This 78-nucleotide RNA from Prunus dulcis belongs to the Rfam family "Small nucleolar RNA snoR14".
The family is grouped with related families in Rfam's "SNORD110 clan".
The base pairs follow the family's consensus structure.
For this family Rfam cites "Multiple snoRNA gene clusters from Arabidopsis" (Brown et al., RNA, 2001).
A search with the family's covariance model found it, with a score of 52 bits.
RNA sequence: GCAAGGAGAAGAAUUCAUUUAUGUCAGUACCCUGAUAACAGUGUAAUGUUACUGUGAAUCCCGACAGGGUUUGAUUGU
Numbered sequence: 001g002c003a004a005g006g007a008g009a010a011g012a013a014u015u016c017a018u019u020u021a022u023g024u025c026a027g028u029a030c031c032c033u034g035a036u037a038a039c040a041g042u043g044u045a046a047u048g049u050u051a052c053u054g055u056g057a058a059u060c061c062c063g064a065c066a067g068g069g070u071u072u073g074a075u076u077g078u
Stems, first nucleotide, its partner, number of pairs: 001078004